Description
Shown here is a 352-nucleotide sequence from Candidatus Nanopelagicus abundans, a member of the family "Bacterial RNase P class A". The source organism's lineage runs through Bacteria, Bacillati, Candidatus Nanopelagicales, Candidatus Nanopelagicaceae and Candidatus Nanopelagicus.
RNA sequence: AGAGUCGUCUGGAUCAUCGCGUUACGAAAGUACCGAGGAAAGUCCGGACUCCAAAGAGUAAGGUGAUGGCUAACGGCCAUCCAGGGAAACCUGCGGGAUUAGUGCCACAGAAAAUAAACCGCCGUUAGCAAUAACGGUAAGGAUGAAACGGUGGUGUAAGAGACCACCAGCAUUUACGGCAACGUAUAUGGCUAGGUAAACCCCACCUGGAGCAAGACCAGAUUGUUGGCAUUUGAGAGCUACUCGCUCGAGCCAACGGGUAGGUUGCUUGAAUCUGUAAGCAAUUACAGAUCUAGAUGGAUGAUGAUCUCUCGCAAGAGAACAGGAUCCGGCUUAUAGGGCGACUCUUCUU
Numbered sequence: 001a002g003a004g005u006c007g008u009c010u011g012g013a014u015c016a017u018c019g020c021g022u023u024a025c026g027a028a029a030g031u032a033c034c035g036a037g038g039a040a041a042g043u044c045c046g047g048a049c050u051c052c053a054a055a056g057a058g059u060a061a062g063g064u065g066a067u068g069g070c071u072a073a074c075g076g077c078c079a080u081c082c083a084g085g086g087a088a089a090c091c092u093g094c095g096g097g098a099u100u101a102g103u104g105c106c107a108c109a110g111a112a113a114a115u116a117a118a119c120c121g122c123c124g125u126u127a128g129c130a131a132u133a134a135c136g137g138u139a140a141g142g143a144u145g146a147a148a149c150g151g152u153g154g155u156g157u158a159a160g161a162g163a164c165c166a167c168c169a170g171c172a173u174u175u176a177c178g179g180c181a182a183c184g185u186a187u188a189u190g191g192c193u194a195g196g197u198a199a200a201c202c203c204c205a206c207c208u209g210g211a212g213c214a215a216g217a218c219c220a221g222a223u224u225g226u227u228g229g230c231a232u233u234u235g236a237g238a239g240c241u242a243c244u245c246g247c248u249c250g251a252g253c254c255a256a257c258g259g260g261u262a263g264g265u266u267g268c269u270u271g272a273a274u275c276u277g278u279a280a281g282c283a284a285u286u287a288c289a290g291a292u293c294u295a296g297a298u299g300g301a302u303g304a305u306g307a308u309c310u311c312u313c314g315c316a317a318g319a320g321a322a323c324a325g326g327a328u329c330c331g332g333c334u335u336a337u338a339g340g341g342c343g344a345c346u347c348u349u350c351u352u
Base pairs, nucleotide, nucleotide: 001348002347003346004345005344006343007342008341009340010339011337012309013308014307015306016305017304018303020035021034023032024031025030040335041334042333044332045331046330047329048328049212050211051210052209056245057244058243059242061208062207063206064205065204066080067079068078069077070076081095082093083092084091085090096203097202102201103200104197105196106195119142120141121138122137123136124135125134126133127132150168151167152166153165154164155163170192171190172189173188175186176185177184178183216266217265218264219263225257226256227255228254229253230252237249238248239247240246273292274291275290276289277288278287279286280285

It scores 312 bits against the family's covariance model. Gene Ontology terms of the family: dimeric ribonuclease P complex, ribonuclease P activity and tRNA processing.